Guanidine-I riboswitch aptamer: a 99-nucleotide sequence.
Pairs were carried over by alignment from the consensus structure.
Rfam describes the family as follows. This family represents a conserved RNA structure found upstream of the ykkC and yxkD genes in Bacillus subtilis and related genes in other bacteria.
[Rfam]
RNA sequence: GAAAUGGACGGCUAGGGUUCCGGCCUGCUUCAAGCAGGUGCUGGUCCGAGAGCUGUCGACCUCGGUGAGGUUACACGGCGGGAUAAAAGCCCGGGAGAG
Numbered sequence: 001g002a003a004a005u006g007g008a009c010g011g012c013u014a015g016g017g018u019u020c021c022g023g024c025c026u027g028c029u030u031c032a033a034g035c036a037g038g039u040g041c042u043g044g045u046c047c048g049a050g051a052g053c054u055g056u057c058g059a060c061c062u063c064g065g066u067g068a069g070g071u072u073a074c075a076c077g078g079c080g081g082g083a084u085a086a087a088a089g090c091c092c093g094g095g096a097g098a099g
Base pairs, nucleotide, nucleotide: 007057008056009055010054011053012052015047016046020044021043022041023039024038025037026036027035028034058072059071060070061069062068074094076097080092081091082090